The record is a 97-nucleotide RNA sequence from Oligoflexus sp., which matches "Bacterial small signal recognition particle RNA" in Rfam.
Rfam describes the family as follows. The signal recognition particle (SRP) is a universally conserved ribonucleoprotein involved in the co-translational targeting of proteins to membranes.
Clan: SRP clan.
It scores 70 bits against the family's covariance model.
It is annotated as a non-coding RNA gene.
[Rfam]
RNA sequence: AGCUAGAUUCCGGAUGAUGUUUCCCUACGAACCCCGCCAGGACCGGAAGGUAGCAACGGUAGUAGGAGUAAGCAGGUGUCCGGCCCAUCUAGCUGUC
Numbered sequence: 001a002g003c004u005a006g007a008u009u010c011c012g013g014a015u016g017a018u019g020u021u022u023c024c025c026u027a028c029g030a031a032c033c034c035c036g037c038c039a040g041g042a043c044c045g046g047a048a049g050g051u052a053g054c055a056a057c058g059g060u061a062g063u064a065g066g067a068g069u070a071a072g073c074a075g076g077u078g079u080c081c082g083g084c085c086c087a088u089c090u091a092g093c094u095g096u097c
Stems, first nucleotide, its partner, number of pairs: 004091005010083005015076001018074005024066005034059003042051003
Dot-bracket structure: ...(((((.((((((..(((((.(((((.....(((.....(((....))).....)))..)))))...))))).)..)))))...)))))......